[Rfam]
RNA: Small nucleolar RNA SNORD113/SNORD114 family
RNA sequence: UGGAUUGAUGAUGACUACCCGUGGCGUAUGAGUUGUAUGCGAUGAAUACGUGUCUGGAACUCUGAGAUCCAA
Numbered sequence: 001u002g003g004a005u006u007g008a009u010g011a012u013g014a015c016u017a018c019c020c021g022u023g024g025c026g027u028a029u030g031a032g033u034u035g036u037a038u039g040c041g042a043u044g045a046a047u048a049c050g051u052g053u054c055u056g057g058a059a060c061u062c063u064g065a066g067a068u069c070c071a072a
Base pairs, nucleotide, nucleotide: 002070003069004068005067006066